A member of the RNA family "c-di-GMP-I riboswitch aptamer" from Paenibacillus sp. J2TS4, 88 nucleotides long. NCBI's taxonomy places the organism under Bacteria, Bacillati, Bacillota, Bacilli, Paenibacillus. The base pairs follow the family's consensus structure, which is taken from published work.
RNA sequence: AAUCAAAUACGGCACACUAAUCGAAAGAUUAGGUCGCAAAGCCUUGGAGUCUACGAGUCGAAAGACUUAUGAUCGUCCGGUUGCAAUU
Numbered sequence: 001a002a003u004c005a006a007a008u009a010c011g012g013c014a015c016a017c018u019a020a021u022c023g024a025a026a027g028a029u030u031a032g033g034u035c036g037c038a039a040a041g042c043c044u045u046g047g048a049g050u051c052u053a054c055g056a057g058u059c060g061a062a063a064g065a066c067u068u069a070u071g072a073u074c075g076u077c078c079g080g081u082u083g084c085a086a087u088u
Stems, first nucleotide, its partner, number of pairs: 012037002017032006040082004046078003049073003056067004